Background: The record is an 85-nucleotide RNA sequence from Camphora micrantha, which matches "MIR319 microRNA precursor family" in Rfam. The family has 11 seed sequences and 168 matches in Rfam 15.1.

RNA sequence: UAGAAAUGGGGGUUCCUUUCGGCCCAAAACAGUUCAUGAUCUUCUAAAUGAUUUCGCUUUGGACUGAAGGGAGCUCCUAAUUCUC
Numbered sequence: 001u002a003g004a005a006a007u008g009g010g011g012g013u014u015c016c017u018u019u020c021g022g023c024c025c026a027a028a029a030c031a032g033u034u035c036a037u038g039a040u041c042u043u044c045u046a047a048a049u050g051a052u053u054u055c056g057c058u059u060u061g062g063a064c065u066g067a068a069g070g071g072a073g074c075u076c077c078u079a080a081u082u083c084u085c
Stems, first nucleotide, its partner, number of pairs: 007079012021065002024062005
Annotation:
Pairs were carried over by alignment from the consensus structure, which was predicted with RNAalifold.